[Rfam]
RNA sequence: AAUACGGUUUGUUAGGUGAGGCUCCUAUGCAUACAUAGGCUACUGCCCAAGAAUGUCCAGAGACGCCAAUGGGUAUAACAGGUUCGGUCGAAUUAAGGCCCUACAUAAGGUAGCUAACGCGAAGCGUUUACGAUGCACAGUGCUAAAGCUGCUCAAAGAAUCUGAGAU
Dot-bracket structure: ....(((.(((.[.(((..(((..((.(((((......(((((.(((((....((((....))))....))))).......((...(((......])))...)).....))))).(((.......)))....))))).)).)))...)))...)....)).)))....
This 168-nucleotide sequence from Suicoccus acidiformans belongs to the Rfam family "M-box riboswitch aptamer (ykoK leader)". It scores 138 bits against the family's covariance model. Its family is annotated with response to magnesium ion and regulation of gene expression in the Gene Ontology. The base pairs follow the family's consensus structure.